This 73-nucleotide RNA sequence from Oppiella nova belongs to the Rfam family "mir-3931 microRNA precursor family".
RNA sequence: UUGUAAUGAUUUGUACCGAUUCAUUGAUAGGUUAGAAAGUUGUACUACUUUGAGUCGGUACGAAUCAUCCCAU
Numbered sequence: 001u002u003g004u005a006a007u008g009a010u011u012u013g014u015a016c017c018g019a020u021u022c023a024u025u026g027a028u029a030g031g032u033u034a035g036a037a038a039g040u041u042g043u044a045c046u047a048c049u050u051u052g053a054g055u056c057g058g059u060a061c062g063a064a065u066c067a068u069c070c071c072a073u
Stems, first nucleotide, its partner, number of pairs: 006068018026048001030046003035041001

Taxonomically the source falls in Oppiella (Eukaryota, Opisthokonta, Eumetazoa, Chelicerata). A search with the family's covariance model found it, with a score of 76 bits.